A member of the RNA family "Group II catalytic intron D1-D4-2" from Sunxiuqinia elliptica, 117 nucleotides long. A search with the family's covariance model found it, with a score of 88 bits. The pairing is the family consensus, mapped onto this sequence.
RNA sequence: GGAUGAACCUCCGGUGUCGUCUUACAGGAGGGGGCAUCAAACCACCCAAAGGUGCUUUGGUUAAGAGCCUUGGUACUGAGCGUUUGGGAAACGGGUCCGCUGAGAGCAGGCUCAGGU
Number, nucleotide and partner (000 for none) at each position: 001g009002g008003a000004u000005g000006a000007a000008c002009c001010u000011c000012c000013g038014g037015u036016g035017u034018c033019g000020u031021c030022u029023u028024a000025c000026a000027g000028g023029a022030g021031g020032g000033g018034g017035c016036a015037u014038c013039a000040a000041a000042c000043c116044a000045c088046c087047c086048a085049a084050a083051g077052g076053u000054g074055c073056u072057u000058u000059g069060g068061u067062u000063a000064a000065g000066a000067g061068c060069c059070u000071u000072g056073g055074u054075a000076c052077u051078g000079a000080g000081c000082g000083u050084u049085u048086g047087g046088g045089a000090a000091a000092c000093g113094g112095g111096u110097c109098c000099g000100c000101u000102g000103a000104g000105a000106g000107c000108a000109g097110g096111c095112u094113c093114a000115g000116g043117u000

Rfam's curators write: Group II introns are found in rRNA, tRNA and mRNA of organelles in fungi, plants and protists, and also in mRNA in bacteria.